[Rfam]
RNA sequence: UUGCCCAUCGGGGCCACGGAUACCUGUGUGUCC
Numbered sequence: 001u002u003g004c005c006c007a008u009c010g011g012g013g014c015c016a017c018g019g020a021u022a023c024c025u026g027u028g029u030g031u032c033c
Stems, first nucleotide, its partner, number of pairs: 003014004017026003